The family of this 118-nucleotide RNA sequence from Clostridium perfringens is "FMN riboswitch aptamer (RFN element)".
RNA sequence: AAAAGUCUUCAGGGCGGGGUGUAAGUCCCCACCGGCGGUAAAGCCCGCGAGCUAGUUUUUAGCAUGAUUCGGUGAAAUUCCGAGGCCGACAGUAUAGUCUGGAUGAAAGAAGAUGAGU
Number, nucleotide and partner (000 for none) at each position: 001a000002a000003a000004a000005g114006u113007c112008u111009u110010c109011a000012g000013g000014g000015c000016g000017g029018g028019g027020u000021g000022u000023a000024a000025g000026u000027c019028c018029c017030c000031a098032c097033c088034g087035g048036c047037g046038g045039u000040a000041a000042a000043g086044c085045c038046c037047g036048c035049g000050a000051g000052c000053u000054a000055g000056u000057u000058u000059u000060u000061a000062g000063c000064a000065u000066g000067a000068u084069u083070c082071g081072g080073u000074g000075a000076a000077a000078u000079u000080c072081c071082g070083a069084g068085g044086c043087c034088g033089a000090c101091a100092g099093u000094a000095u000096a000097g032098u031099c092100u091101g090102g000103a000104u000105g000106a000107a000108a000109g010110a009111a008112g007113a006114u005115g000116a000117g000118u000
Annotation: The source organism's lineage runs through Bacteria, Clostridia, Eubacteriales, Clostridiaceae and Clostridium perfringens CPE. The family's consensus secondary structure is taken from published work.